[Rfam]
RNA sequence: AUCUAUCUUCGGGGCAGGGUGAAAUUCCCGACCGGCGGUGAGGAACAUAGUUCUAAGUCCGCGAGCCUAUUCGUUAGGCUGAUUUGGUGUAAAUCCAAAACCGACAGUAAAGUCUGGAUGGGAGAAGAUGGAG
Numbered sequence: 001a002u003c004u005a006u007c008u009u010c011g012g013g014g015c016a017g018g019g020u021g022a023a024a025u026u027c028c029c030g031a032c033c034g035g036c037g038g039u040g041a042g043g044a045a046c047a048u049a050g051u052u053c054u055a056a057g058u059c060c061g062c063g064a065g066c067c068u069a070u071u072c073g074u075u076a077g078g079c080u081g082a083u084u085u086g087g088u089g090u091a092a093a094u095c096c097a098a099a100a101c102c103g104a105c106a107g108u109a110a111a112g113u114c115u116g117g118a119u120g121g122g123a124g125a126a127g128a129u130g131g132a133g
Base pairs, nucleotide, nucleotide: 003131004130005129006128007127008126009125010124017029018028019027031113032112033103034102035062036061037060038059057101058100065079066078067077083099084098085097086096087095105116106115107114
RNA: FMN riboswitch aptamer (RFN element)